Lysine riboswitch aptamer: a 206-nucleotide sequence from Litorilituus lipolyticus. The organism belongs to Litorilituus, within Bacteria. The base pairs follow the family's consensus structure, which is taken from published work.

RNA sequence: UGCACCAGAAGAGGUGCGAUAGCUAGGUAAAUAACGUCAUAUCUUAUGGUAUUUGGAACCACAUUCUAAUAAGCGUUAUUGAGGGAGACUAUCGCCGAGGACAUAGGUAUGUGUGGCAUAUCAUGUUCGGUCACUAAGGUUGAAUCCUUAGGGCUGUCACCUGACGUAAUUGUUUUUAUAACAAAAGGUGGAGAGCUUCUGGCUGA
Numbered sequence: 001u002g003c004a005c006c007a008g009a010a011g012a013g014g015u016g017c018g019a020u021a022g023c024u025a026g027g028u029a030a031a032u033a034a035c036g037u038c039a040u041a042u043c044u045u046a047u048g049g050u051a052u053u054u055g056g057a058a059c060c061a062c063a064u065u066c067u068a069a070u071a072a073g074c075g076u077u078a079u080u081g082a083g084g085g086a087g088a089c090u091a092u093c094g095c096c097g098a099g100g101a102c103a104u105a106g107g108u109a110u111g112u113g114u115g116g117c118a119u120a121u122c123a124u125g126u127u128c129g130g131u132c133a134c135u136a137a138g139g140u141u142g143a144a145u146c147c148u149u150a151g152g153g154c155u156g157u158c159a160c161c162u163g164a165c166g167u168a169a170u171u172g173u174u175u176u177u178a179u180a181a182c183a184a185a186a187g188g189u190g191g192a193g194a195g196c197u198u199c200u201g202g203c204u205g206a
Stems, first nucleotide, its partner, number of pairs: 006201006016095007024087001030080008099128006106122005129155004134151006157191006
Dot-bracket structure: .....((((((....(((((((.(.....((((((((...................................))))))))......).)))))))...((((((.(((((.......)))))))))))((((.((((((......)))))))))).((((((.......................))))))....)))))).....
About this RNA
The match comes from Rfam's covariance-model search (77 bits).